RNA: transfer-messenger RNA
Organism: Actinomadura chibensis
RNA sequence: GGGGGUGACCGGCUUCGACUUCGGUCGUUCGAGCCAGGGGAAGCGGGUCGAGGGUUGCUGUCGUGACCUCGUAAAUCCUGUGACAGCAAACCAAUAACUGCCAACAAGAAGCAGUCCGAGUUCGCCCUCGCCGCCUGAGCGAGGAGCGAACUCUGUCAGCCCGGGAGCGUCUCCGACCCGGGGUCUGGCAUCGCUAGGAGACUCCACCUACCAGCCCGGUCGCGGGGCCGGUAGGAACACCUAACAGCGACUGAGUCCGUCGGCGACACGCCUGCGUGAGCGCCGGGACUGAGAAAACGCCAAGCAGGCUGCACCCGGAGAAGCCCUGACCCAUCACCGAAGGACGCGGGUUCGAUUCCCGCCACCUCCACCA
Dot-bracket structure: (((((((...........(((((((.((..(.(.(((((....((((([[[[[..(((((((....]]]]]..........)))))))......................................(((..(((....)))..))).......((((((((((.(...[[[[[[...)))))..))))))......]]]]]]....((((((.((..[[[[[[...)).))))))...........]]]]]].(((((..(((...(..[[[[...[[.)..))))))))..........]]...]]]]...)))))......))))).).))).)))))))...(((((.......))))))))))))....